[Rfam]
RNA sequence: CCCCAGCAUCAGGAACGACCGCUCGCACCAAACGAGCGGUCGGCCAACCUGGCCCGGAAGGCCAAGGUGGUUUCCUCGGACGGUGUUCGUCCGGGGGAUGCGCGCGGGGCAGGAGCCCUGGCGAACGAAGCUUCCGGCGC
Numbered sequence: 001c002c003c004c005a006g007c008a009u010c011a012g013g014a015a016c017g018a019c020c021g022c023u024c025g026c027a028c029c030a031a032a033c034g035a036g037c038g039g040u041c042g043g044c045c046a047a048c049c050u051g052g053c054c055c056g057g058a059a060g061g062c063c064a065a066g067g068u069g070g071u072u073u074c075c076u077c078g079g080a081c082g083g084u085g086u087u088c089g090u091c092c093g094g095g096g097g098a099u100g101c102g103c104g105c106g107g108g109g110c111a112g113g114a115g116c117c118c119u120g121g122c123g124a125a126c127g128a129a130g131c132u133u134c135c136g137g138c139g140c
Stems, first nucleotide, its partner, number of pairs: 006101005017041009043071003048067003051063003056134003103123003
Rfam assigns this 140-nucleotide RNA to the family "SAM-I/IV (S-adenosyl methionine) riboswitch aptamer". Its family is annotated with S-adenosylmethionine metabolic process and regulation of gene expression in the Gene Ontology. The sequence is in the family's curated seed alignment.